Annotation:
Rfam assigns this 545-nucleotide sequence from Bombus vosnesenskii to the family "Nuclear RNase P". Rfam classes the family as a ribozyme. NCBI's taxonomy places the organism under Eukaryota, Metazoa, Protostomia, Aculeata, Pyrobombus. It scores 100 bits against the family's covariance model. Ribonuclease P (RNase P) is a ubiquitous endoribonuclease, found in archaea, bacteria and eukarya as well as chloroplasts and mitochondria. Its best characterised activity is the generation of mature 5'-ends of tRNAs by cleaving the 5'-leader elements of precursor-tRNAs. Cellular RNase Ps are ribonucleoproteins. RNA from bacterial RNase Ps retains its catalytic activity in the absence of the protein subunit, i.e. it is a ribozyme. Isolated eukaryotic and archaeal RNase P RNA has not been shown to retain its catalytic function, but is still essential for the catalytic activity of the holoenzyme. Although the archaeal and eukaryotic holoenzyme s have a much greater protein content than the bacterial ones, the RNA cores from all the three lineages are homologous -- helices corresponding to P1, P2, P3, P4, and P10/11 are common to all cellular RNase P RNAs. Yet, there is considerable sequence variation, particularly among the eukaryotic RNAs.

[Rfam]
Nucleotides: 545
Base pairs, nucleotide, nucleotide: 001545002544003543004542008538009537010536013455014454016452017451018450019449022067023066024065025064026063039052040051041050042049076528077527078526079525080524085431086430087429088428112126113125114124115123116122127142128141129140130139131138143427144426145425147423148422149421162413163412164411165410166409456516457515458514459513460512461511462510
Number, partner (000 for none) and nucleotide at each position: 001545g002544c003543c004542a005000g006000g007000g008538u009537c010536a011000a012000u013455c014454u015000a016452g017451c018450a019449g020000a021000a022067g023066a024065g025064g026063c027000a028000c029000a030000c031000g032000u033000g034000g035000c036000u037000g038000g039052g040051g041050u042049a043000c044000u045000u046000a047000g048000u049042u050041a051040c052039c053000g054000c055000g056000a057000u058000g059000u060000u061000c062000u063026g064025c065024c066023u067022c068000g069000g070000g071000a072000a073000g074000g075000u076528c077527u078526g079525a080524g081000a082000u083000a084000a085431a086430g087429u088428u089000g090000c091000c092000u093000c094000u095000c096000u097000u098000c099000c100000a101000a102000c103000a104000g105000g106000g107000a108000g109000g110000g111000a112126c113125g114124c115123u116122c117000u118000a119000g120000a121000a122116g123115g124114g125113c126112g127142a128141u129140c130139c131138u132000u133000u134000a135000a136000a137000u138131g139130g140129g141128a142127u143427a144426c145425g146000a147423g148422a149421a150000a151000a152000c153000c154000a155000g156000a157000a158000a159000c160000a161000g162413c163412g164411g165410u166409a167000a168000a169000c170000c171000a172000g173000c174000c175000u176000u177000c178000u179000g180000u181000c182000g183000c184000c185000g186000u187000g188000g189000a190000c191000g192000c193000c194000a195000a196000g197000u198000g199000u200000u201000u202000c203000u204000c205000u206000u207000c208000u209000c210000c211000u212000u213000c214000u215000c216000u217000u218000u219000c220000u221000u222000c223000u224000c225000u226000a227000u228000g229000g230000u231000u232000c233000c234000u235000a236000u237000u238000g239000u240000a241000u242000g243000g244000u245000u246000c247000c248000a249000u250000u251000c252000u253000g254000c255000c256000c257000u258000g259000u260000c261000a262000c263000g264000u265000u266000c267000u268000u269000c270000a271000u272000a273000g274000u275000u276000u277000c278000u279000c280000a281000u282000a283000g284000u285000g286000u287000u288000u289000g290000c291000c292000u293000c294000a295000u296000u297000u298000u299000c300000a301000c302000g303000u304000u305000u306000c307000u308000c309000u310000c311000c312000g313000a314000c315000u316000g317000c318000u319000c320000c321000u322000c323000u324000u325000a326000a327000c328000u329000u330000c331000c332000u333000c334000u335000c336000c337000u338000c339000a340000a341000u342000c343000c344000c345000u346000g347000c348000a349000a350000c351000u352000a353000u354000g355000u356000u357000c358000c359000u360000u361000g362000a363000g364000a365000a366000u367000a368000c369000g370000a371000g372000a373000g374000a375000g376000a377000u378000g379000g380000g381000a382000a383000a384000a385000a386000c387000u388000g389000u390000g391000g392000c393000a394000g395000a396000g397000g398000u399000c400000g401000g402000c403000u404000g405000g406000c407000c408000a409166u410165a411164c412163c413162g414000a415000u416000g417000g418000a419000a420000a421149u422148u423147c424000c425145c426144g427143u428088g429087a430086c431085u432000c433000g434000c435000a436000a437000u438000u439000u440000c441000a442000g443000u444000a445000c446000a447000a448000u449019c450018u451017g452016c453000a454014a455013g456516c457515c458514a459513u460512c461511c462510c463000u464000c465000c466000g467000c468000g469000u470000c471000u472000u473000u474000g475000u476000a477000u478000c479000u480000a481000c482000a483000c484000u485000c486000g487000u488000a489000u490000u491000u492000c493000g494000u495000g496000g497000a498000c499000u500000c501000u502000u503000c504000u505000a506000a507000g508000g509000u510462g511461g512460g513459g514458u515457g516456g517000a518000a519000c520000u521000c522000a523000a524080u525079u526078c527077a528076g529000a530000c531000u532000a533000a534000u535000c536010u537009g538008a539000c540000u541000c542004u543003g544002g545001c